RNA sequence: UAGCUUUGUCCUAAGUAAAACUUUUUGAAGUUUGACCAAGUUUAUAGAAAAAUGUAUCAGCAUAUAGAAUAUCAAAUAAGUAUACUAUGAAGAUAUAUCAUAAUGGACUUGCUAAAACUAAUUUAGAGUUGUACAUGUUGGUAUAUUUUUCUAUAAACUAGGUCAAAGUUUAAGAAGUUUGACUUAGGACAAAGUUAG
Numbered sequence: 001u002a003g004c005u006u007u008g009u010c011c012u013a014a015g016u017a018a019a020a021c022u023u024u025u026u027g028a029a030g031u032u033u034g035a036c037c038a039a040g041u042u043u044a045u046a047g048a049a050a051a052a053u054g055u056a057u058c059a060g061c062a063u064a065u066a067g068a069a070u071a072u073c074a075a076a077u078a079a080g081u082a083u084a085c086u087a088u089g090a091a092g093a094u095a096u097a098u099c100a101u102a103a104u105g106g107a108c109u110u111g112c113u114a115a116a117a118c119u120a121a122u123u124u125a126g127a128g129u130u131g132u133a134c135a136u137g138u139u140g141g142u143a144u145a146u147u148u149u150u151c152u153a154u155a156a157a158c159u160a161g162g163u164c165a166a167a168g169u170u171u172a173a174g175a176a177g178u179u180u181g182a183c184u185u186a187g188g189a190c191a192a193a194g195u196u197a198g
Stems, first nucleotide, its partner, number of pairs: 005193005011187006018180009031167005045153008055143003059139005065133002068130001072126001074124004
RNA: MIR1435 microRNA precursor family
Organism: Brachypodium distachyon